[Rfam]
RNA sequence: GGAUGGGGUAGAGGAGCAAAAGAAAAGAGUAGACUGUGUAAGGAUGACAACGGUGAUCACAGUUCGAAAGGUUUUUUUGCCGAAGCGAUUAUUUUUGUCAAAGGAUUUUCGCUGGUGUUGCUUUGAAGAAGAGUAACACUCUCAUAUAUAGUGAUAGUACUAUUGUGGGGAGCUACAGAUCGC
Numbered sequence: 001g002g003a004u005g006g007g008g009u010a011g012a013g014g015a016g017c018a019a020a021a022g023a024a025a026a027g028a029g030u031a032g033a034c035u036g037u038g039u040a041a042g043g044a045u046g047a048c049a050a051c052g053g054u055g056a057u058c059a060c061a062g063u064u065c066g067a068a069a070g071g072u073u074u075u076u077u078u079g080c081c082g083a084a085g086c087g088a089u090u091a092u093u094u095u096u097g098u099c100a101a102a103g104g105a106u107u108u109u110c111g112c113u114g115g116u117g118u119u120g121c122u123u124u125g126a127a128g129a130a131g132a133g134u135a136a137c138a139c140u141c142u143c144a145u146a147u148a149u150a151g152u153g154a155u156a157g158u159a160c161u162a163u164u165g166u167g168g169g170g171a172g173c174u175a176c177a178g179a180u181c182g183c
Stems, first nucleotide, its partner, number of pairs: 008176004016080009032064007084113005091106005114140011142168005
A member of the RNA family "Lysine riboswitch aptamer" from Bacillus sp. FJAT-49711, 183 nucleotides long. The match comes from Rfam's covariance-model search (98 bits). Riboswitches are metabolite binding domains within certain messenger RNAs that serve as precision sensors for their corresponding targets. Pairs were carried over by alignment from the consensus structure, which is taken from published work.